[Rfam]
RNA sequence: GGACCCGGCGGCGCGGGCAGUUCCCAUGGAAAAAGAAGGGGACGAAAGGAACCCGCCAAGCCCCACCCCUCCCGCCCGUGGUCGGCACUCACUCGGGCGGGUGAACAUCAUCGGCUCGGCUGGAUUCAACGGCCCUCAACUGCCCUACGCUCAGCGAAAACAGCCGCACACAUGCAUCGGCCCUCGGCCGGGACUAGCGAUCCCGAUCGAGGGCCUGGCCACCGAGGAAGUUAGGAGCUUCCCG
Numbered sequence: 001g002g003a004c005c006c007g008g009c010g011g012c013g014c015g016g017g018c019a020g021u022u023c024c025c026a027u028g029g030a031a032a033a034a035g036a037a038g039g040g041g042a043c044g045a046a047a048g049g050a051a052c053c054c055g056c057c058a059a060g061c062c063c064c065a066c067c068c069c070u071c072c073c074g075c076c077c078g079u080g081g082u083c084g085g086c087a088c089u090c091a092c093u094c095g096g097g098c099g100g101g102u103g104a105a106c107a108u109c110a111u112c113g114g115c116u117c118g119g120c121u122g123g124a125u126u127c128a129a130c131g132g133c134c135c136u137c138a139a140c141u142g143c144c145c146u147a148c149g150c151u152c153a154g155c156g157a158a159a160a161c162a163g164c165c166g167c168a169c170a171c172a173u174g175c176a177u178c179g180g181c182c183c184u185c186g187g188c189c190g191g192g193a194c195u196a197g198c199g200a201u202c203c204c205g206a207u208c209g210a211g212g213g214c215c216u217g218g219c220c221a222c223c224g225a226g227g228a229a230g231u232u233a234g235g236a237g238c239u240u241c242c243c244g
Base pairs, nucleotide, nucleotide: 007223008222010220016076017075018074020073089104090103091102092101093100094099119155120154121153122152123151179215180214181213182212183211185209186208190204191203192202193201226242227241228240229239230238
RNA: Streptomyces sRNA 4677
Organism: Streptomyces sp. SID10815